RNA sequence: UCUAGCUCCCUGGCGCUGACUCCCAGCCGAUCAAGCCCUGACUUUCUUCCCCGAUGUCAGGUCGGACCGGAUGGGGAUCACCGCCAGCGAUCUCGAUUCC
Dot-bracket structure: .........((((((..((.(((((.(((.((..(.((((((.(.........).)))))).).)).))).))))).))..)))))).............
A member of the RNA family "mraW RNA" from Conyzicola lurida, 100 nucleotides long.
Rfam classes the family as a cis-regulatory element.
The match comes from Rfam's covariance-model search (57 bits).